Description: The record is a 125-nucleotide RNA from Aythya fuligula, which matches "Small Cajal body specific RNA 3" in Rfam. The family's RNA type in Rfam is small Cajal body RNA. On this family, see Huttenhofer et al., EMBO J 2001: "RNomics: an experimental approach that identifies 201 candidates for novel, small, non-messenger RNAs in mouse". Gene Ontology terms of the family: Cajal body, RNA processing and nucleolus. scaRNAs are a specific class of small nuclear RNAs which localise to the Cajal bodies and guide the modification of RNA polymerase II transcribed spliceosomal RNAs U1, U2, U4, U5 and U12. The organism belongs to Aythya, within Eukaryota.
RNA sequence: GUUGGGACCAGUCGUGGGCAAACGAAGAGUGUUUUGUCCACUGUUGCAGUCUUCCUAGAGUAAAGUGGAGGUCUCUGUCUGCUUUAGGAGAGCCAACUAAACUGGAUCGUUCCCCUCCAUACAUG
Number, nucleotide and partner (000 for none) at each position: 001g047002u046003u000004g000005g000006g000007a000008c000009c000010a000011g000012u000013c000014g041015u040016g039017g038018g037019c036020a000021a000022a000023c000024g033025a032026a000027g000028a000029g000030u000031g000032u025033u024034u000035u000036g019037u018038c017039c016040a015041c014042u000043g000044u000045u000046g002047c001048a000049g000050u000051c000052u000053u000054c000055c000056u000057a000058g000059a000060g000061u000062a000063a000064a000065g000066u000067g118068g117069a116070g115071g114072u000073c000074u000075c109076u000077g107078u106079c105080u000081g103082c000083u101084u100085u099086a098087g097088g000089a000090g000091a000092g000093c000094c000095a000096a000097c087098u086099a085100a084101a083102c000103u081104g000105g079106a078107u077108c000109g075110u000111u000112c000113c000114c071115c070116u069117c068118c067119a000120u000121a000122c000123a000124u000125g000